[Rfam]
RNA sequence: AUAAGAAAAAAGCAAACUUUCUGAAAGGGAAGGACGCAAAGCAAAGGGUCUAAGGUUGGAUAACUAGGAUCGCCUGGCUGCCAUA
Numbered sequence: 001a002u003a004a005g006a007a008a009a010a011a012g013c014a015a016a017c018u019u020u021c022u023g024a025a026a027g028g029g030a031a032g033g034a035c036g037c038a039a040a041g042c043a044a045a046g047g048g049u050c051u052a053a054g055g056u057u058g059g060a061u062a063a064c065u066a067g068g069a070u071c072g073c074c075u076g077g078c079u080g081c082c083a084u085a
Base pairs, nucleotide, nucleotide: 012037013036017032018031019030020029021028022027040079041078042077045075046074047073048070049069050068055064056063057062
Record summary: The family of this 85-nucleotide RNA sequence from Aquibacillus koreensis is "c-di-GMP-I riboswitch aptamer". A search with the family's covariance model found it, with a score of 76 bits. The source organism's lineage runs through Bacteria, Bacillati, Bacillota, Caryophanales and Aquibacillus.